[Rfam]
RNA sequence: AACCAAAUAUAUUCCCGAGUAUAUAUUCCUGUAGACAAUUGUCCAAGGAUUAUAUACCGAUAGGGUAUAGGAAGAAAUUUCUAUGCCUCCCGUUUGGAAAGGGAAUGCUGAUUAACUACU
Numbered sequence: 001a002a003c004c005a006a007a008u009a010u011a012u013u014c015c016c017g018a019g020u021a022u023a024u025a026u027u028c029c030u031g032u033a034g035a036c037a038a039u040u041g042u043c044c045a046a047g048g049a050u051u052a053u054a055u056a057c058c059g060a061u062a063g064g065g066u067a068u069a070g071g072a073a074g075a076a077a078u079u080u081c082u083a084u085g086c087c088u089c090c091c092g093u094u095u096g097g098a099a100a101g102g103g104a105a106u107g108c109u110g111a112u113u114a115a116c117u118a119c120u
Stems, first nucleotide, its partner, number of pairs: 011106006019057007027049003034043003063088011089097002
Molybdenum/Tungsten riboswitch aptamer (Moco RNA motif): a 120-nucleotide sequence from Anaerosalibacter massiliensis. The organism belongs to Anaerosalibacter, within Bacteria. It scores 79 bits against the family's covariance model.